[Rfam]
The family of this 75-nucleotide RNA sequence from Streptomyces buecherae is "ASpks TB sRNA".
Rfam 15.1 lists 9,052 matches to the family in 683 species.
By type it is an antisense RNA.
The base pairs follow the family's consensus structure, which is taken from published work.
It scores 71 bits against the family's covariance model.
RNA sequence: CUUGUACGAGCCCAGCCACAGCGGCUGCUCCGGGUCGCGGCCCUCGCCGUAGGUGGUCAGCAGCGCCUGGGCCUC
Numbered sequence: 001c002u003u004g005u006a007c008g009a010g011c012c013c014a015g016c017c018a019c020a021g022c023g024g025c026u027g028c029u030c031c032g033g034g035u036c037g038c039g040g041c042c043c044u045c046g047c048c049g050u051a052g053g054u055g056g057u058c059a060g061c062a063g064c065g066c067c068u069g070g071g072c073c074u075c
Stems, first nucleotide, its partner, number of pairs: 014026004031071001038065002043060002047056003